[Rfam]
RNA sequence: UUACUUACCUGGAUGUGGUCAAUGGACAAUCAUUAAGGUCCAUGGCCUAGGGAAGUGACUUUCAUUGCACUUUGGAUGAGUUCUUGCCUAAGGUCUACCCAAGUGGUGGAGCCUACAUCAUAAUUUGUGUUAAGGGGCUUGUGUUUGCGCGCCCCAG
Number, nucleotide and partner (000 for none) at each position: 001u000002u000003a000004c000005u000006u000007a000008c000009c000010u000011g000012g119013a118014u117015g116016u000017g047018g046019u045020c044021a043022a000023u042024g041025g040026a039027c038028a000029a000030u000031c000032a000033u000034u000035a000036a000037g000038g027039u026040c025041c024042a023043u021044g020045g019046c018047c017048u000049a089050g088051g087052g000053a000054a000055g083056u000057g081058a000059c080060u079061u078062u075063c074064a000065u000066u000067g000068c000069a000070c000071u000072u000073u000074g063075g062076a000077u000078g061079a060080g059081u057082u000083c055084u000085u000086g000087c051088c050089u049090a000091a114092g113093g112094u110095c109096u108097a000098c106099c105100c000101a000102a000103g000104u000105g099106g098107u000108g096109g095110a094111g000112c093113c092114u091115a000116c015117a014118u013119c012120a000121u000122a000123a000124u000125u000126u000127g000128u000129g000130u000131u000132a000133a000134g155135g154136g153137g000138c000139u000140u151141g150142u149143g148144u000145u000146u000147g000148c143149g142150c141151g140152c000153c136154c135155c134156a000157g000